[Rfam]
Mammalian CPEB3 ribozyme: a 77-nucleotide sequence from Parnassius apollo. The base pairs follow the family's consensus structure, which is taken from published work. Its family is annotated with RNA nuclease activity in the Gene Ontology. NCBI's taxonomy places the organism under Eukaryota, Dicondylia, Lepidoptera, Ditrysia, Parnassius.
RNA sequence: UCCGAUUUUAUUAUGGUCAUUGUAGAAGCGUGCUCAUCGCGACCCCUGCCAGCCCUCUUCAGGGCUGCAAUUCUACA
Numbered sequence: 001u002c003c004g005a006u007u008u009u010a011u012u013a014u015g016g017u018c019a020u021u022g023u024a025g026a027a028g029c030g031u032g033c034u035c036a037u038c039g040c041g042a043c044c045c046c047u048g049c050c051a052g053c054c055c056u057c058u059u060c061a062g063g064g065c066u067g068c069a070a071u072u073c074u075a076c077a
Stems, first nucleotide, its partner, number of pairs: 015044004021077007028040003050067007